[Rfam]
RNA: MIR162_1 microRNA precursor family
RNA sequence: UGGGAGUGCACUGGAGGCAGCGGUUCAUCGAUCUGUUUAUGAGAUUUGUUGUGAAAAAACACAGAACAUGAAUCGGUCGAUAAACCUCUGCAUCCAGCGCUCACUCU
Numbered sequence: 001u002g003g004g005a006g007u008g009c010a011c012u013g014g015a016g017g018c019a020g021c022g023g024u025u026c027a028u029c030g031a032u033c034u035g036u037u038u039a040u041g042a043g044a045u046u047u048g049u050u051g052u053g054a055a056a057a058a059a060c061a062c063a064g065a066a067c068a069u070g071a072a073u074c075g076g077u078c079g080a081u082a083a084a085c086c087u088c089u090g091c092a093u094c095c096a097g098c099g100c101u102c103a104c105u106c107u
Base pairs, nucleotide, nucleotide: 013095014094015093018090019089020088022086023085024084025083027081028080029079030078031077032076033075036072037071038070
Dot-bracket structure: ............(((..(((.((((.(((((((..(((...............................)))..))))))).)))).)))..)))............